[Rfam]
Guanidine-I riboswitch aptamer: a 109-nucleotide RNA sequence from Paenibacillus sp. TCA20. The pairing is the family consensus, mapped onto this sequence. The literature on the family includes a 2004 paper in Proc Natl Acad Sci U S A by Barrick et al., "New RNA motifs suggest an expanded scope for riboswitches in bacterial genetic control". The match comes from Rfam's covariance-model search (92 bits).
RNA sequence: ACCAAAGUUUUCUAGGGUUCCGGGUCGUAUACACGGCUGGCUGGUCCGAGAGAAAACGCAUCAGUGGUUAUCCACUGAUGUACACGGCGGGAAAAAAAGCCCGGGAGAA
Dot-bracket structure: ......((((((..((...(((((((((....))))))..).)).))....))))))((((((((........)))))))).(.[...(((........))).)..]..
Numbered sequence: 001a002c003c004a005a006a007g008u009u010u011u012c013u014a015g016g017g018u019u020c021c022g023g024g025u026c027g028u029a030u031a032c033a034c035g036g037c038u039g040g041c042u043g044g045u046c047c048g049a050g051a052g053a054a055a056a057c058g059c060a061u062c063a064g065u066g067g068u069u070a071u072c073c074a075c076u077g078a079u080g081u082a083c084a085c086g087g088c089g090g091g092a093a094a095a096a097a098a099g100c101c102c103g104g105g106a107g108a109a
Stems, first nucleotide, its partner, number of pairs: 007057006015047002020044002022041001023038006058081008083104001085107001089102003